This 170-nucleotide sequence from Anoxybacter fermentans belongs to the Rfam family "Group II catalytic intron D1-D4-3".
RNA sequence: UCACUGAUAACAGUGGGGUCUGAAGGAAGCUGAAGGGGGGAACCUGGAACAUAGCGAAAGCGAAUCAGGGUUGGCUUUUCAGGUAGGUAACUUUGCAUAAUGUGGGAAAGUCCGAAAGUUGGAUAACCUUAGAAGUUAGGACGGAUGGAUUCAAGUUCAGGCAGGUAGGC
Dot-bracket structure: ((((((....))))))............(((.(...(....((.(((..(((............((.......(((.((.((((.(((..(((..........)))...))).............)))).)).)))......)))))...))).)).....)...).)))
Numbered sequence: 001u002c003a004c005u006g007a008u009a010a011c012a013g014u015g016g017g018g019u020c021u022g023a024a025g026g027a028a029g030c031u032g033a034a035g036g037g038g039g040g041a042a043c044c045u046g047g048a049a050c051a052u053a054g055c056g057a058a059a060g061c062g063a064a065u066c067a068g069g070g071u072u073g074g075c076u077u078u079u080c081a082g083g084u085a086g087g088u089a090a091c092u093u094u095g096c097a098u099a100a101u102g103u104g105g106g107a108a109a110g111u112c113c114g115a116a117a118g119u120u121g122g123a124u125a126a127c128c129u130u131a132g133a134a135g136u137u138a139g140g141a142c143g144g145a146u147g148g149a150u151u152c153a154a155g156u157u158c159a160g161g162c163a164g165g166u167a168g169g170c
Stems, first nucleotide, its partner, number of pairs: 001016006029170003033166001037162001042156002045153003050147003065144002074136003078132002081129004086112003091106003